[Rfam]
RNA sequence: CGUCACCUCACUGGAGAGAGACCGCGCGCUGCGUCGACCCACAGGUCGGCGGCGAUCGCGGUCCACCGAAGGGGCAAGCGCGGCACCGGCCACACCGGGGCCGCGUCAAUCUCUCAGGUAAAGCGGACAGCGAGGGCACC
Numbered sequence: 001c002g003u004c005a006c007c008u009c010a011c012u013g014g015a016g017a018g019a020g021a022c023c024g025c026g027c028g029c030u031g032c033g034u035c036g037a038c039c040c041a042c043a044g045g046u047c048g049g050c051g052g053c054g055a056u057c058g059c060g061g062u063c064c065a066c067c068g069a070a071g072g073g074g075c076a077a078g079c080g081c082g083g084c085a086c087c088g089g090c091c092a093c094a095c096c097g098g099g100g101c102c103g104c105g106u107c108a109a110u111c112u113c114u115c116a117g118g119u120a121a122a123g124c125g126g127a128c129a130g131c132g133a134g135g136g137c138a139c140c
Base pairs, nucleotide, nucleotide: 006135007134008133009132011130012129013128020063021062022061023060024059025058026057065119066118067117068115069114072113073112074111078106079105080104081103082102083101084100
RNA: Glycine riboswitch aptamer
Organism: Sphaerotilus montanus